[Rfam]
FMN riboswitch aptamer (RFN element): a 143-nucleotide RNA sequence from Chloroherpeton thalassium.
RNA sequence: ACUUGUUCUCAGGGCGGGGCGAAAUUCCCCACCGGCGGUGUUCCAAACUUUUGGAGAGCCCGCGAGCGCUCCCAGGUGGGAGGUCAGCAGAUUUGGUGAAAAGCCAAAGCCGACGGUGAAAGGCCGGAUGGAAGAGGAUAAGG
Numbered sequence: 001a002c003u004u005g006u007u008c009u010c011a012g013g014g015c016g017g018g019g020c021g022a023a024a025u026u027c028c029c030c031a032c033c034g035g036c037g038g039u040g041u042u043c044c045a046a047a048c049u050u051u052u053g054g055a056g057a058g059c060c061c062g063c064g065a066g067c068g069c070u071c072c073c074a075g076g077u078g079g080g081a082g083g084u085c086a087g088c089a090g091a092u093u094u095g096g097u098g099a100a101a102a103g104c105c106a107a108a109g110c111c112g113a114c115g116g117u118g119a120a121a122g123g124c125c126g127g128a129u130g131g132a133a134g135a136g137g138a139u140a141a142g143g
Base pairs, nucleotide, nucleotide: 003141004140005139006138007137008136009135010134017029018028019027032122033112034111035063036062037061038060058110059109066088067087092108093107094106095105096104114126115125116124